[Rfam]
RNA: EGFOA RNA
RNA sequence: UCUUUCCUAGAGUAAAUGACUCUUUUUUAGAGUAAUGUUACAAAUCCCGUCCCAGUUGCCUUUUGGCAAGGUAGAUUAUAGUGUGAACUUUUAAAGUCGGUCAAUAAAGCUGGACCUAGGUGACCCGUCCCCGAAUUGGUAGUAGGCAGUACGGCACUAUAAU
Numbered sequence: 001u002c003u004u005u006c007c008u009a010g011a012g013u014a015a016a017u018g019a020c021u022c023u024u025u026u027u028u029a030g031a032g033u034a035a036u037g038u039u040a041c042a043a044a045u046c047c048c049g050u051c052c053c054a055g056u057u058g059c060c061u062u063u064u065g066g067c068a069a070g071g072u073a074g075a076u077u078a079u080a081g082u083g084u085g086a087a088c089u090u091u092u093a094a095a096g097u098c099g100g101u102c103a104a105u106a107a108a109g110c111u112g113g114a115c116c117u118a119g120g121u122g123a124c125c126c127g128u129c130c131c132c133g134a135a136u137u138g139g140u141a142g143u144a145g146g147c148a149g150u151a152c153g154g155c156a157c158u159a160u161a162a163u
Base pairs, nucleotide, nucleotide: 006120007119008118009117010116049115050114052113053112054111055110056069057068058067059066060065075163076162077161078160079159080158081157082156087097088096089095099125100124101123102122103121